[Rfam]
RNA: TPP riboswitch aptamer (THI element)
RNA sequence: AAAGCUCACCAGGGGGGUCCCGACAAGGGGCUGAGAUACUGCUGGCCCUGGAGCGCCGCGCUUCCUUUGGACGCGCAAAGGACGCUCCGAGACUUUGAGUCCGGGCAGCGCAGUGACCCGUUGAACCUGAUCCAGUUCAUACUGGCGUAGGGACGGUGCGAGGCUUCGCGG
Numbered sequence: 001a002a003a004g005c006u007c008a009c010c011a012g013g014g015g016g017g018u019c020c021c022g023a024c025a026a027g028g029g030g031c032u033g034a035g036a037u038a039c040u041g042c043u044g045g046c047c048c049u050g051g052a053g054c055g056c057c058g059c060g061c062u063u064c065c066u067u068u069g070g071a072c073g074c075g076c077a078a079a080g081g082a083c084g085c086u087c088c089g090a091g092a093c094u095u096u097g098a099g100u101c102c103g104g105g106c107a108g109c110g111c112a113g114u115g116a117c118c119c120g121u122u123g124a125a126c127c128u129g130a131u132c133c134a135g136u137u138c139a140u141a142c143u144g145g146c147g148u149a150g151g152g153a154c155g156g157u158g159c160g161a162g163g164c165u166u167c168g169c170g171g
Stems, first nucleotide, its partner, number of pairs: 007158004012119003017031005038114005126151004132145004